[Rfam]
RNA sequence: AGCCAUGAUGAGUUAAUUUGCGCCUGAUAGCGAGGUCGGUGACAAAUGCCUAUUGUCAAACAAACCACCUUGCCUAUGUGACGACAAAAUUCUCUGAGCA
Numbered sequence: 001a002g003c004c005a006u007g008a009u010g011a012g013u014u015a016a017u018u019u020g021c022g023c024c025u026g027a028u029a030g031c032g033a034g035g036u037c038g039g040u041g042a043c044a045a046a047u048g049c050c051u052a053u054u055g056u057c058a059a060a061c062a063a064a065c066c067a068c069c070u071u072g073c074c075u076a077u078g079u080g081a082c083g084a085c086a087a088a089a090u091u092c093u094c095u096g097a098g099c100a
Stems, first nucleotide, its partner, number of pairs: 002099002021083002024080001030073005039065002041057005